[Rfam]
RNA sequence: CUAUGCUGUUCCCGAUUAUUCUGUCUUUCUAUCAUUCAUAGAGAACGGAU
Numbered sequence: 001c002u003a004u005g006c007u008g009u010u011c012c013c014g015a016u017u018a019u020u021c022u023g024u025c026u027u028u029c030u031a032u033c034a035u036u037c038a039u040a041g042a043g044a045a046c047g048g049a050u
Base pairs, nucleotide, nucleotide: 006048007047008046009045010044011043